[Rfam]
Rfam assigns this 188-nucleotide RNA from Desulfobacula toluolica to the family "Group II catalytic intron D1-D4-3".

RNA sequence: GUACCGGCGACGGUGUUUCGGAAGGAAGCCGCCCUGCCGAGGCAGGGUACCGCAAAGGUACGGAGUGACGCACAGAAAUCGGGCACAAGGCGUCCACACCGGGACGAGUCUGCACAACAAGACGAAGUCCUCUAUCCAUUAUAGGGUGUGUCCGUAAACCCGGCACUCACGUACCGAAAGACAUGUGC
Dot-bracket structure: ((((((....))))))............................(.(((...(...(((((((((((...........(((((......(((..((((((.((((..((((........))))...))))..............))))))..)))...)))))))))).))))))....)...))).)

A search with the family's covariance model found it, with a score of 116 bits. Pairs were carried over by alignment from the consensus structure.